This 75-nucleotide sequence from Alligator sinensis belongs to the Rfam family "Mammalian CPEB3 ribozyme".
The family's consensus secondary structure is taken from published work.
The mammalian CPEB3 ribozyme is a self cleaving RNA located in the second intron of the CPEB3 gene which belongs to a family of genes regulating messenger RNA polyadenylation.
Taxonomically the source falls in Alligator (Eukaryota, Opisthokonta, Bilateria, Archosauria).
A search with the family's covariance model found it, with a score of 37 bits.

Nucleotides: 075
Base pairs, nucleotide, nucleotide: 013044015042016041017040021075022074023073024072025071026070027069028038029037048063049062050061051060052059053058
Number, partner (000 for none) and nucleotide at each position: 001000u002000g003000u004000u005000g006000c007000a008000a009000a010000u011000c012000u013044g014000a015042g016041g017040c018000c019000a020000u021075a022074g023073c024072a025071g026070a027069a028038g029037c030000u031000c032000a033000u034000g035000g036000u037029g038028c039000a040017g041016c042015c043000a044013c045000a046000u047000c048063a049062g050061a051060u052059u053058c054000c055000a056000a057000u058053g059052a060051a061050u062049c063048u064000a065000u066000g067000a068000c069027u070026u071025c072024u073023g074022c075021u